Background: The family of this 97-nucleotide RNA from Massilia sp. NR 4-1 is "Glycine riboswitch aptamer". Its family is annotated with glycine biosynthetic process in the Gene Ontology.
[Rfam]
RNA sequence: GGGACCAACUCUGGAGAGCGGCCAUAUGGCCCACCGAAGGGGCGUGCGGGAUGCAAUAUCCCGUUAUCUCUCAGGUACCGAGGACAGAGGGGUAGAC
Numbered sequence: 001g002g003g004a005c006c007a008a009c010u011c012u013g014g015a016g017a018g019c020g021g022c023c024a025u026a027u028g029g030c031c032c033a034c035c036g037a038a039g040g041g042g043c044g045u046g047c048g049g050g051a052u053g054c055a056a057u058a059u060c061c062c063g064u065u066a067u068c069u070c071u072c073a074g075g076u077a078c079c080g081a082g083g084a085c086a087g088a089g090g091g092g093u094a095g096a097c
Base pairs, nucleotide, nucleotide: 006092009089010088011087012086013085020031021030022029023028033076034075035074036072037071040070041069042068046064047063048062049061050060051059